The family of this 69-nucleotide RNA sequence from Mycolicibacterium madagascariense is "ASpks TB sRNA". Taxonomically the source falls in Mycobacterium (subgen. Mycolicibacterium) (Bacteria, Bacillati, Actinomycetes, Mycobacterium). It is annotated as an antisense RNA. It scores 78 bits against the family's covariance model.
RNA sequence: CUUCACCGAGCCCAGCCACAGCGGCUGCCGCCGGUCCUGUCCGUACGUGGCGAGCAGCGCUUGCGCCUC
Numbered sequence: 001c002u003u004c005a006c007c008g009a010g011c012c013c014a015g016c017c018a019c020a021g022c023g024g025c026u027g028c029c030g031c032c033g034g035u036c037c038u039g040u041c042c043g044u045a046c047g048u049g050g051c052g053a054g055c056a057g058c059g060c061u062u063g064c065g066c067c068u069c
Stems, first nucleotide, its partner, number of pairs: 014026004029065003032059002037054002041050003